[Rfam]
RNA: Ruegeria cis8 sRNA
RNA sequence: ACGGCCAGAACCUUGGCGAUAUAGGGGAUCAGUGGUAGGUUCAGGAUCAAAAGCACCACGUUUCCGAUAUACAUUGAAAUGAUCACCGACCAGAAAAUCUGUGGAUCAUCCACCAUCAAACGUGGGCC
Numbered sequence: 001a002c003g004g005c006c007a008g009a010a011c012c013u014u015g016g017c018g019a020u021a022u023a024g025g026g027g028a029u030c031a032g033u034g035g036u037a038g039g040u041u042c043a044g045g046a047u048c049a050a051a052a053g054c055a056c057c058a059c060g061u062u063u064c065c066g067a068u069a070u071a072c073a074u075u076g077a078a079a080u081g082a083u084c085a086c087c088g089a090c091c092a093g094a095a096a097a098u099c100u101g102u103g104g105a106u107c108a109u110c111c112a113c114c115a116u117c118a119a120a121c122g123u124g125g126g127c128c
Base pairs, nucleotide, nucleotide: 004017005016006015007014008013026128027127029125030124031123033122034121036119038114039113040112043109045107046106047105048104050102052100053099061093062092073083074082075081